[Rfam]
Nucleotides: 145
Stems, first nucleotide, its partner, number of pairs: 020032005041071005050060004072086005090135007104121007
Number, partner (000 for none) and nucleotide at each position: 001000a002000a003000a004000a005000u006000u007000u008000u009000a010000a011000a012000a013000g014000c015000g016000c017000c018000u019000g020032a021031g022030c023029u024028a025000u026000a027000u028024u029023a030022g031021c032020u033000g034000a035000c036000g037000a038000g039000g040000a041071c042070a043069g044068g045067g046000u047000u048000a049000a050060u051059c052058g053057a054000u055000u056000u057053u058052c059051g060050g061000c062000g063000g064000a065000u066000u067045c068044c069043c070042u071041g072086c073085g074084g075083u076082a077000a078000u079000g080000u081000c082076u083075a084074c085073c086072g087000u088000a089000a090135u091134u092133u093132a094131u095130c096129u097000u098000a099000c100000a101000a102000a103000a104121c105120u106119u107118u108117a109116a110115a111000g112000u113000a114000a115110u116109u117108u118107a119106a120105a121104g122000c123000a124000c125000a126000a127000a128000a129096a130095g131094a132093u133092a134091a135090a136000a137000g138000a139000c140000a141000a142000a143000u144000a145000c